[Rfam]
The record is a 74-nucleotide RNA sequence from Burkholderiales bacterium PBB1, which matches "SAH (S-adenosyl-L-homocysteine) riboswitch aptamer" in Rfam.
It scores 60 bits against the family's covariance model.
The family's consensus secondary structure is taken from published work.
NCBI's taxonomy places the organism under Bacteria, Pseudomonadati, Pseudomonadota, Betaproteobacteria, Burkholderiales.
The literature on the family includes a 2008 paper in Mol Cell by Wang et al., "Riboswitches that sense S-adenosylhomocysteine and activate genes involved in coenzyme recycling".
Gene Ontology terms of the family: S-adenosylhomocysteine metabolic process and regulation of gene expression.
RNA sequence: UCAUCCGAGGAGCGUUGCAAGGCACGUCAGUGUCCCAGGCUCGGAGUUCAUCAUUGCAACCGCGCUCACCCGCA
Numbered sequence: 001u002c003a004u005c006c007g008a009g010g011a012g013c014g015u016u017g018c019a020a021g022g023c024a025c026g027u028c029a030g031u032g033u034c035c036c037a038g039g040c041u042c043g044g045a046g047u048u049c050a051u052c053a054u055u056g057c058a059a060c061c062g063c064g065c066u067c068a069c070c071c072g073c074a
Stems, first nucleotide, its partner, number of pairs: 004045005021034005